Record summary:
A member of the RNA family "Small nucleolar RNA SNORA68" from Cyprinodon variegatus, 130 nucleotides long. From the family's description: U68 is a member of the H/ACA class of small nucleolar RNAs (snoRNAs) which act as guides in the the modification of uridines to pseudouridines. The literature on the family includes a 1997 paper in Genes Dev by Ganot et al., "The family of box ACA small nucleolar RNAs is defined by an evolutionarily conserved secondary structure and ubiquitous sequence elements essential for RNA accumulation". Rfam 15.1 lists 1,079 matches to the family in 643 species.

RNA sequence: UCUGCACCCAAACCCAAAGGUCUCGUUCUUCUCCGUAGCGAGAUUUUGUCUGGCGUGCAAACAGAACCAGAACCUUGUCGCCUUUCUCUGACUGUCGUGUCUUUGAAAGUGAAUUCUUGGUCCGACACUA
Numbered sequence: 001u002c003u004g005c006a007c008c009c010a011a012a013c014c015c016a017a018a019g020g021u022c023u024c025g026u027u028c029u030u031c032u033c034c035g036u037a038g039c040g041a042g043a044u045u046u047u048g049u050c051u052g053g054c055g056u057g058c059a060a061a062c063a064g065a066a067c068c069a070g071a072a073c074c075u076u077g078u079c080g081c082c083u084u085u086c087u088c089u090g091a092c093u094g095u096c097g098u099g100u101c102u103u104u105g106a107a108a109g110u111g112a113a114u115u116c117u118u119g120g121u122c123c124g125a126c127a128c129u130a
Base pairs, nucleotide, nucleotide: 003059004058005057006056007055009053019045020044021043022042023041024040025039026038027037070123072121073120074119082109083108084107085106086105090101091100092099
Dot-bracket structure: ..(((((.(.........(((((((((.........))))))))).......).)))))..........(.(((.......(((((...(((......)))...))))).........))).).......